[Rfam]
RNA sequence: UGUAGGACUGAGAAGGUGAGGCAGUUGUGCCCUGUGCUGCCUAAUACUGGUUAAGACCUCCAAAUGGGAAGGGCUGCCCAGGCAGAGGAUGUCCCCCUGCCACCUUUGGAGGGGCAGUGCUGGCCAACAUUCG
Numbered sequence: 001u002g003u004a005g006g007a008c009u010g011a012g013a014a015g016g017u018g019a020g021g022c023a024g025u026u027g028u029g030c031c032c033u034g035u036g037c038u039g040c041c042u043a044a045u046a047c048u049g050g051u052u053a054a055g056a057c058c059u060c061c062a063a064a065u066g067g068g069a070a071g072g073g074c075u076g077c078c079c080a081g082g083c084a085g086a087g088g089a090u091g092u093c094c095c096c097c098u099g100c101c102a103c104c105u106u107u108g109g110a111g112g113g114g115c116a117g118u119g120c121u122g123g124c125c126a127a128c129a130u131u132c133g
Base pairs, nucleotide, nucleotide: 002061004059005058006057015048016047017046018045019042020041021040022039023038024037025036081125082124083123086121087120091118097117098116099115100114101113103112104111

Shown here is a 133-nucleotide sequence from Saimiri boliviensis, a member of the family "Small nucleolar RNA SNORA47". The family's RNA type in Rfam is H/ACA-box small nucleolar RNA. On this family, see Huttenhofer et al., EMBO J 2001: "RNomics: an experimental approach that identifies 201 candidates for novel, small, non-messenger RNAs in mouse". Its family is annotated with nucleolus and RNA processing in the Gene Ontology. The base pairs follow the family's consensus structure, which was predicted with WAR.